[Rfam]
RNA sequence: CGUAGGGGCUUCUGUCGUAGGAGAGAUGGCGCCAAAUGCAAUCAUAUUGGUUUGGUACUAAUUAUGGUAGAAUUAAAGCUAAGCCAAUUUGGGCACCGGGUUUCAUCUCUCCUCGACUGAAGCCCCUCACUUU
Numbered sequence: 001c002g003u004a005g006g007g008g009c010u011u012c013u014g015u016c017g018u019a020g021g022a023g024a025g026a027u028g029g030c031g032c033c034a035a036a037u038g039c040a041a042u043c044a045u046a047u048u049g050g051u052u053u054g055g056u057a058c059u060a061a062u063u064a065u066g067g068u069a070g071a072a073u074u075a076a077a078g079c080u081a082a083g084c085c086a087a088u089u090u091g092g093g094c095a096c097c098g099g100g101u102u103u104c105a106u107c108u109c110u111c112c113u114c115g116a117c118u119g120a121a122g123c124c125c126c127u128c129a130c131u132u133u
Base pairs, nucleotide, nucleotide: 005125006124007123009122010121011120012119014117015116016115017114019113020112021111023109024108025107026106027105028104029103
Shown here is a 133-nucleotide sequence from Prunus persica, a member of the family "MIR5225 microRNA precursor family". Rfam 15.1 lists 63 matches to the family in 47 species. The source organism's lineage runs through Eukaryota, Tracheophyta, rosids, Amygdaloideae and Prunus.